[Rfam]
RNA sequence: UUUGGGAAAUGAUGCUAAGAUCCAAACUACAUUAUCUGAGUUUUCCAUGCUGAAUGCAUGCUUGCACGUCGGUCUGAACCCAAA
Dot-bracket structure: ((((((........................................................................))))))